A member of the RNA family "Small nucleolar RNA SNORD59" from Chlorocebus sabaeus, 67 nucleotides long. The match comes from Rfam's covariance-model search (74 bits). Clan: SNORD59 clan. Rfam links the family to the GO terms RNA processing and nucleolus.
RNA sequence: CCUCACUGAUGAGUACAUUCUUUCAUUCUUCUGAGUUUGCUGAAGCCAUAUGCAAUUUCUGAGAAGG
Numbered sequence: 001c002c003u004c005a006c007u008g009a010u011g012a013g014u015a016c017a018u019u020c021u022u023u024c025a026u027u028c029u030u031c032u033g034a035g036u037u038u039g040c041u042g043a044a045g046c047c048a049u050a051u052g053c054a055a056u057u058u059c060u061g062a063g064a065a066g067g
Stems, first nucleotide, its partner, number of pairs: 001067003004063001